Shown here is a 153-nucleotide RNA sequence from Paenibacillus montaniterrae, a member of the family "c-di-AMP riboswitch aptamer (ydaO/yuaA leader)". Lineage of the source: Bacteria > Bacillota > Bacilli > Caryophanales > Paenibacillus.
[Rfam]
RNA sequence: AUAUUGAUACUGCUUAAUCCUCUAUUAUAGAGGAGCGGGGGAACCAUGGAAGCAUUUUUGCUUCAGGGGUGAAUUCUUUCUAUACAGGAAAGAACGGGUACUCUCAGACCCGAAUCCGACAGCUAACCUCGUAAGCGUCAUGAGAGAGAGCCU
Numbered sequence: 001a002u003a004u005u006g007a008u009a010c011u012g013c014u015u016a017a018u019c020c021u022c023u024a025u026u027a028u029a030g031a032g033g034a035g036c037g038g039g040g041g042a043a044c045c046a047u048g049g050a051a052g053c054a055u056u057u058u059u060g061c062u063u064c065a066g067g068g069g070u071g072a073a074u075u076c077u078u079u080c081u082a083u084a085c086a087g088g089a090a091a092g093a094a095c096g097g098g099u100a101c102u103c104u105c106a107g108a109c110c111c112g113a114a115u116c117c118g119a120c121a122g123c124u125a126a127c128c129u130c131g132u133a134a135g136c137g138u139c140a141u142g143a144g145a146g147a148g149a150g151c152c153u
Base pairs, nucleotide, nucleotide: 011137012136013135014134018034019033020032021031022030023029024028035132036131037130038129039128040127045066067117068116069115075093076092077091078090096111097110098109099108